[Rfam]
The family of this 184-nucleotide RNA from Andreesenella acetica is "Lysine riboswitch aptamer".
Riboswitches are metabolite binding domains within certain messenger RNAs that serve as precision sensors for their corresponding targets. Allosteric rearrangement of mRNA structure is mediated by ligand binding, and this results in modulation of gene expression.
Rfam links the family to the GO term lysine biosynthetic process.
Lineage of the source: Bacteria > Bacillati > Peptostreptococcales > Natronincolaceae > Andreesenella.
The base pairs follow the family's consensus structure, which is taken from published work.

RNA sequence: UUAAUGAGUAGAGGUGCAUUGAAGAUGAGUAUAUAGUAGGUGUUAAGAGGGAAACCCUCAAUACUGCUAUAGAAAGGCUGACGUGCCGAAACUGUUAAAUGGUUUUCAGUUUAACAGUUGGGGGUUUAGUGAAUAACUAAACAACUGUCAUGGAAAUACUAAUCCAUGGGGUGCUAUUUGUUAA
Number, nucleotide and partner (000 for none) at each position: 001u000002u000003a000004a000005u000006g179007a178008g177009u176010a175011g174012a000013g000014g000015u000016g086017c085018a084019u083020u000021g000022a000023a079024g078025a000026u000027g000028a000029g000030u000031a000032u071033a070034u069035a068036g067037u066038a065039g064040g000041u000042g000043u000044u000045a000046a000047g000048a000049g000050g000051g000052a000053a000054a000055c000056c000057c000058u000059c000060a000061a000062u000063a000064c039065u038066g037067c036068u035069a034070u033071a032072g000073a000074a000075a000076g000077g000078c024079u023080g000081a000082c000083g019084u018085g017086c016087c000088g000089a000090a119091a118092c117093u116094g115095u114096u113097a112098a111099a110100u109101g000102g000103u000104u000105u000106u000107c000108a000109g100110u099111u098112u097113a096114a095115c094116a093117g092118u091119u090120g146121g145122g000123g000124g142125u141126u140127u139128a138129g137130u136131g000132a000133a000134u000135a000136a130137c129138u128139a127140a126141a125142c124143a000144a000145c121146u120147g000148u169149c168150a167151u166152g165153g164154a163155a000156a000157u000158a000159c000160u000161a000162a000163u154164c153165c152166a151167u150168g149169g148170g000171g000172u000173g000174c011175u010176a009177u008178u007179u006180g000181u000182u000183a000184a000